[Rfam]
RNA: int-alpA RNA
Organism: Aeromonas salmonicida
Nucleotides: 068
Stems, first nucleotide, its partner, number of pairs: 001055008011022004030044004036068005
Number, partner (000 for none) and nucleotide at each position: 001055g002054c003053u004052g005051a006050g007049c008048c009000u010000a011022u012021c013020u014019c015000g016000a017000c018000a019014g020013a021012g022011a023000g024000a025000a026000a027000a028000g029000u030044u031043g032042g033041g034000a035000a036068c037067c038066u039065u040064g041033c042032c043031c044030a045000c046000u047000u048008g049007g050006c051005u052004c053003g054002g055001c056000a057000a058000u059000u060000u061000a062000u063000u064040c065039a066038a067037g068036g